[Rfam]
RNA: TPP riboswitch aptamer (THI element)
Organism: Thalassotalea algicola
RNA sequence: CCGAACUUGUCGGAGUGCCAAAAGGCUGAGAUCGCGUAAGCGGGAUCCGUAGAACCUGAUCAGUGUAAUUGCUGCGAAGGGAACAAGUGCGAAACCUAU
Numbered sequence: 001c002c003g004a005a006c007u008u009g010u011c012g013g014a015g016u017g018c019c020a021a022a023a024g025g026c027u028g029a030g031a032u033c034g035c036g037u038a039a040g041c042g043g044g045a046u047c048c049g050u051a052g053a054a055c056c057u058g059a060u061c062a063g064u065g066u067a068a069u070u071g072c073u074g075c076g077a078a079g080g081g082a083a084c085a086a087g088u089g090c091g092a093a094a095c096c097u098a099u
Base pairs, nucleotide, nucleotide: 006087007086008085009084010083011049012048013047014046016043017026018025019024033042034041035040055080056079057078061074062073063072064071